[Rfam]
Plastid-psbM 3UTR RNA: an 84-nucleotide RNA sequence from Corymbia citriodora.
Rfam 15.1 lists 627 matches to the family in 337 species.
Taxonomically the source falls in Corymbia citriodora (Eukaryota, Spermatophyta, Gunneridae, Pentapetalae).
The match comes from Rfam's covariance-model search (71 bits).
The family's RNA type in Rfam is cis-regulatory element.
Rfam's curators write: Plastid psbM is a non-coding RNA (ncRNA) recognised in plastids. It was found in the three prime untranslated region (3UTR) of psbM gene, its 3UTR location suggests a role in transcript maturation.

RNA sequence: GAUCCGAUAGUAUGGUAGAAAGAUUCAUAUAUUUCUUCUACCAUACUAGCUAUUAUUCUUCUUGGAAUGUAACAAGUUGUACUA
Numbered sequence: 001g002a003u004c005c006g007a008u009a010g011u012a013u014g015g016u017a018g019a020a021a022g023a024u025u026c027a028u029a030u031a032u033u034u035c036u037u038c039u040a041c042c043a044u045a046c047u048a049g050c051u052a053u054u055a056u057u058c059u060u061c062u063u064g065g066a067a068u069g070u071a072a073c074a075a076g077u078u079g080u081a082c083u084a
Stems, first nucleotide, its partner, number of pairs: 006050001008048013022034002